[Rfam]
RNA sequence: GUGCCCUCCUAAGACUGUCUUGGUGCUUUCAGAGACUCGUGUAAGAGGGUAAAAUCAGGCUCUAUAAAACCCAGGGAGGAAACUGUAAAAAUUCCUCCUUGGAUUCUGUCUGGAGUCACAGCC
Numbered sequence: 001g002u003g004c005c006c007u008c009c010u011a012a013g014a015c016u017g018u019c020u021u022g023g024u025g026c027u028u029u030c031a032g033a034g035a036c037u038c039g040u041g042u043a044a045g046a047g048g049g050u051a052a053a054a055u056c057a058g059g060c061u062c063u064a065u066a067a068a069a070c071c072c073a074g075g076g077a078g079g080a081a082a083c084u085g086u087a088a089a090a091a092u093u094c095c096u097c098c099u100u101g102g103a104u105u106c107u108g109u110c111u112g113g114a115g116u117c118a119c120a121g122c123c
Base pairs, nucleotide, nucleotide: 002051003050004049005048006047007046008045010043014040015039017037021032058117060115061114062113063112064111071102072101073100074099075098076097077096079094080093081092084089
RNA: Small nucleolar RNA SNORA26